The record is a 173-nucleotide sequence from Schinkia azotoformans, which matches "SAM riboswitch aptamer (S box leader)" in Rfam. Taxonomically the source falls in Schinkia azotoformans (Bacteria, Bacillati, Bacilli, Bacillaceae). The match comes from Rfam's covariance-model search (51 bits).

[Rfam]
RNA sequence: CUCUUAUCCCGAGUUGGUGGAGGGGGGACAGACCCUAAGAAACCCGGCAACCGACACUAUUAUUAUUUCCAUGAAAUUAUCGCAACUAUCCGGUUUAUUUCGUUGGAAAAUAAAAAAUGGUGACAAGGUGCUUAACCUGUUGCAAGACAAGCUUUUGUCUUGAGCGAUAAGAG
Numbered sequence: 001c002u003c004u005u006a007u008c009c010c011g012a013g014u015u016g017g018u019g020g021a022g023g024g025g026g027g028a029c030a031g032a033c034c035c036u037a038a039g040a041a042a043c044c045c046g047g048c049a050a051c052c053g054a055c056a057c058u059a060u061u062a063u064u065a066u067u068u069c070c071a072u073g074a075a076a077u078u079a080u081c082g083c084a085a086c087u088a089u090c091c092g093g094u095u096u097a098u099u100u101c102g103u104u105g106g107a108a109a110a111u112a113a114a115a116a117a118u119g120g121u122g123a124c125a126a127g128g129u130g131c132u133u134a135a136c137c138u139g140u141u142g143c144a145a146g147a148c149a150a151g152c153u154u155u156u157g158u159c160u161u162g163a164g165c166g167a168u169a170a171g172a173g
Stems, first nucleotide, its partner, number of pairs: 001173008013045001016044003022035003029142003046132004051128002053124001055122007143162006